Overview:
Shown here is a 120-nucleotide RNA sequence from Rousettus aegyptiacus, a member of the family "Small nucleolar RNA SNORA28". A search with the family's covariance model found it, with a score of 92 bits. The base pairs follow the family's consensus structure, which was predicted with RNAfold. It is annotated as an H/ACA-box small nucleolar RNA. About the family: ACA28 is a member of the H/ACA class of snoRNA that guide the sites of modification of uridines to pseudouridines. Its family is annotated with RNA processing and nucleolus in the Gene Ontology. The family is grouped with related families in Rfam's "SNORA28 clan".
RNA sequence: AAACAACACUCUGUGGCAGAUGAUAAACUGAAACAACUUGAGCUUGCUAUAGCUAGAAAGUCUAACCUAUUCCAAUGCUUUCUCCUCCUUGAGAAAAGCCAUUAUAUAGACAUAAACAGU
Numbered sequence: 001a002a003a004c005a006a007c008a009c010u011c012u013g014u015g016g017c018a019g020a021u022g023a024u025a026a027a028c029u030g031a032a033a034c035a036a037c038u039u040g041a042g043c044u045u046g047c048u049a050u051a052g053c054u055a056g057a058a059a060g061u062c063u064a065a066c067c068u069a070u071u072c073c074a075a076u077g078c079u080u081u082c083u084c085c086u087c088c089u090u091g092a093g094a095a096a097a098g099c100c101a102u103u104a105u106a107u108a109g110a111c112a113u114a115a116a117c118a119g120u
Stems, first nucleotide, its partner, number of pairs: 009042003012035003017030003058113001060111005068106003076098001081094004